[Rfam]
Background
The family of this 85-nucleotide RNA sequence from Plantactinospora soyae is "SAH (S-adenosyl-L-homocysteine) riboswitch aptamer". The match comes from Rfam's covariance-model search (38 bits).
RNA sequence: CGGGUCGAGAGGCGCUGCAACGGGCGAAGAUGCCCGCCACGCUCGAUCUGGCUGUUCGUUCCAGACGCAAGGGCGCCUCCGUUCA
Numbered sequence: 001c002g003g004g005u006c007g008a009g010a011g012g013c014g015c016u017g018c019a020a021c022g023g024g025c026g027a028a029g030a031u032g033c034c035c036g037c038c039a040c041g042c043u044c045g046a047u048c049u050g051g052c053u054g055u056u057c058g059u060u061c062c063a064g065a066c067g068c069a070a071g072g073g074c075g076c077c078u079c080c081g082u083u084c085a
Stems, first nucleotide, its partner, number of pairs: 002049007021036006
The family's consensus secondary structure is taken from published work.